[Rfam]
About this RNA
The record is a 94-nucleotide sequence from Cladocopium goreaui, which matches "Epstein-Barr virus stable intronic sequence RNA 2" in Rfam. A search with the family's covariance model found it, with a score of 42 bits.
RNA sequence: CUCCCGGAGGCUCCCAGAAGCUCCCAGAGGCUCCCCUGGGAGCCUCUGGGAGCCUUUCUGGGAGCCUCUGGGAGCUUCUGGGAGCCUCCGGGAG
Numbered sequence: 001c002u003c004c005c006g007g008a009g010g011c012u013c014c015c016a017g018a019a020g021c022u023c024c025c026a027g028a029g030g031c032u033c034c035c036c037u038g039g040g041a042g043c044c045u046c047u048g049g050g051a052g053c054c055u056u057u058c059u060g061g062g063a064g065c066c067u068c069u070g071g072g073a074g075c076u077u078c079u080g081g082g083a084g085c086c087u088c089c090g091g092g093a094g
Stems, first nucleotide, its partner, number of pairs: 001094009011084002016079020

About this RNA
The base pairs follow the family's consensus structure.